A member of the RNA family "T-box leader" from Aerococcus kribbianus, 230 nucleotides long. Uncharged tRNA acts as the effector for transcription antitermination of genes in the T-box leader family.
[Rfam]
RNA sequence: CUAAAAGCUGAGAUGAGAAGAGUAACCAUAGCCAAUCUUUACAGAAAGUCUGCAAGCUGAGAACAGACAAGAACAGUUAGGUGAAAGUGCACUCGGAGCUAUCGACUUGUGCAAGCAAGUCGAUCGGUUAAUAACCGUUAAACCAUUGAGUUAGUAAUCAUAACUCAUGAGACUCUACCCGUGAGGGUAGGGUGAAUAAGGGUGGAAACACGACAACCUUCGUCCCUUUG
Dot-bracket structure: ......((......(((.......(((..(......(((........(((((...........)))))))).....)..))).........)))...))..(((((((........))))))).(((.......)))..................................(((((((........))))))).....((((.......((((......))))))))...
Numbered sequence: 001c002u003a004a005a006a007g008c009u010g011a012g013a014u015g016a017g018a019a020g021a022g023u024a025a026c027c028a029u030a031g032c033c034a035a036u037c038u039u040u041a042c043a044g045a046a047a048g049u050c051u052g053c054a055a056g057c058u059g060a061g062a063a064c065a066g067a068c069a070a071g072a073a074c075a076g077u078u079a080g081g082u083g084a085a086a087g088u089g090c091a092c093u094c095g096g097a098g099c100u101a102u103c104g105a106c107u108u109g110u111g112c113a114a115g116c117a118a119g120u121c122g123a124u125c126g127g128u129u130a131a132u133a134a135c136c137g138u139u140a141a142a143c144c145a146u147u148g149a150g151u152u153a154g155u156a157a158u159c160a161u162a163a164c165u166c167a168u169g170a171g172a173c174u175c176u177a178c179c180c181g182u183g184a185g186g187g188u189a190g191g192g193u194g195a196a197u198a199a200g201g202g203u204g205g206a207a208a209c210a211c212g213a214c215a216a217c218c219u220u221c222g223u224c225c226c227u228u229u230g
Stems, first nucleotide, its partner, number of pairs: 007099002015094003025082003030077001037071003048068005102123007125137003172193007199227004210223004
The family's RNA type in Rfam is cis-regulatory leader.